Rfam assigns this 91-nucleotide sequence from Streptomyces beijiangensis to the family "ZMP/ZTP riboswitch aptamer (pfl RNA motif)".
[Rfam]
RNA sequence: GGCACGUGCGGCGACUGGCGAACGGGGAAUCGACCCCGAGGGAACCGUGCGCGGCCAACCGCACGAGGUGCCGCCCGCCUGGGCACCCCGG
Numbered sequence: 001g002g003c004a005c006g007u008g009c010g011g012c013g014a015c016u017g018g019c020g021a022a023c024g025g026g027g028a029a030u031c032g033a034c035c036c037c038g039a040g041g042g043a044a045c046c047g048u049g050c051g052c053g054g055c056c057a058a059c060c061g062c063a064c065g066a067g068g069u070g071c072c073g074c075c076c077g078c079c080u081g082g083g084c085a086c087c088c089c090g091g
Stems, first nucleotide, its partner, number of pairs: 003053001005051007015041002017079004024037004068086005
Background: The source organism's lineage runs through Bacteria, Bacillati, Actinomycetes, Streptomycetaceae and Streptomyces. It scores 43 bits against the family's covariance model. Pairs were carried over by alignment from the consensus structure, which is taken from published work.